[Rfam]
RNA: SAM riboswitch aptamer (S box leader)
RNA sequence: AACUUAUCAAGAGUGGACGAGAGAACUGGCUCAGUGACUCCACGGCAACCUACAUUUGAAAGGUGCCCCUACCAGCAAAGCGCAUGCUUUGAGUGAUGAAUG
Numbered sequence: 001a002a003c004u005u006a007u008c009a010a011g012a013g014u015g016g017a018c019g020a021g022a023g024a025a026c027u028g029g030c031u032c033a034g035u036g037a038c039u040c041c042a043c044g045g046c047a048a049c050c051u052a053c054a055u056u057u058g059a060a061a062g063g064u065g066c067c068c069c070u071a072c073c074a075g076c077a078a079a080g081c082g083c084a085u086g087c088u089u090u091g092a093g094u095g096a097u098g099a100a101u102g
Stems, first nucleotide, its partner, number of pairs: 002101001004099005013043005021032003026075004044067004049063002051060001053058001071094001076091006